[Rfam]
The family of this 105-nucleotide RNA sequence from Halobacillus halophilus is "SAM riboswitch aptamer (S box leader)".
The organism belongs to Halobacillus halophilus, within Bacteria.

RNA sequence: UCCUUAUAAAGAGCCGGGGAAGGAAUCUGGUCCGUUGAUCCCGCAGCAACCUCUCCUAGUUGGAGAAGGUGCUCAUUCCAGCAGACAUUGUCUGAGAGAUAAGGU
Numbered sequence: 001u002c003c004u005u006a007u008a009a010a011g012a013g014c015c016g017g018g019g020a021a022g023g024a025a026u027c028u029g030g031u032c033c034g035u036u037g038a039u040c041c042c043g044c045a046g047c048a049a050c051c052u053c054u055c056c057u058a059g060u061u062g063g064a065g066a067a068g069g070u071g072c073u074c075a076u077u078c079c080a081g082c083a084g085a086c087a088u089u090g091u092c093u094g095a096g097a098g099a100u101a102a103g104g105u
Stems, first nucleotide, its partner, number of pairs: 002104006013044001015043004022033003027081004045073004050069002052066004077097001082094005